[Rfam]
A member of the RNA family "T-box leader" from Atribacter laminatus, 200 nucleotides long. Pairs were carried over by alignment from the consensus structure, which is taken from published work. A search with the family's covariance model found it, with a score of 121 bits. Lineage of the source: Bacteria > Atribacterota > Atribacteria > Atribacterales > Atribacter. Rfam's curators write: Uncharged tRNA acts as the effector for transcription antitermination of genes in the T-box leader family. T-boxes are found upstream of many aminoacyl-tRNA synthetase genes and some amino acid biosynthetic genes usually in Gram-positive bacteria. The anticodon of a specific tRNA base pairs to a specifier sequence within the T-box motif, and the NCCA acceptor tail of the tRNA base pairs to a conserved bulge in the T-box antiterminator hairpin.
Nucleotides: 200
Base pairs, nucleotide, nucleotide: 007100008099015095016094017093018092026084027083028082029081030080031079038074039073040072049071050070051069052068053067054066103123104122105121106120107119108118125135126134127133149162150161151160152159153158167197168196169195170194178193179192180191181190182189
Number, partner (000 for none) and nucleotide at each position: 001000a002000a003000a004000a005000u006000g007100g008099c009000a010000a011000u012000g013000a014000a015095g016094g017093g018092g019000a020000g021000c022000a023000g024000u025000a026084a027083a028082g029081g030080g031079a032000a033000g034000g035000a036000g037000a038074a039073a040072c041000a042000u043000c044000a045000g046000a047000a048000a049071a050070c051069c052068g053067g054066u055000g056000g057000u058000u059000g060000a061000u062000g063000c064000a065000a066054a067053c068052c069051g070050g071049u072040g073039u074038u075000u076000u077000u078000g079031u080030u081029c082028c083027u084026u085000g086000a087000a088000u089000c090000c091000a092018c093017c094016c095015u096000g097000g098000a099008g100007c101000c102000g103123u104122g105121g106120g107119a108118a109000g110000a111000a112000u113000a114000g115000a116000a117000a118108u119107u120106c121105u122104c123103a124000c125135c126134g127133c128000a129000a130000a131000a132000u133127g134126c135125g136000u137000u138000a139000a140000g141000g142000u143000a144000u145000u146000g147000a148000g149162g150161g151160u152159g153158g154000u155000a156000u157000u158153c159152c160151a161150c162149u163000g164000a165000a166000a167197a168196g169195g170194g171000u172000g173000g174000c175000a176000c177000c178193g179192c180191g181190a182189g183000u184000a185000g186000g187000c188000u189182c190181u191180c192179g193178c194170c195169c196168c197167u198000a199000u200000g
For this family Rfam cites "Interaction between the acceptor end of tRNA and the T box stimulates antitermination in the Bacillus subtilis tyrS gene: a new role for the discriminator base" (Grundy et al., J Bacteriol, 1994).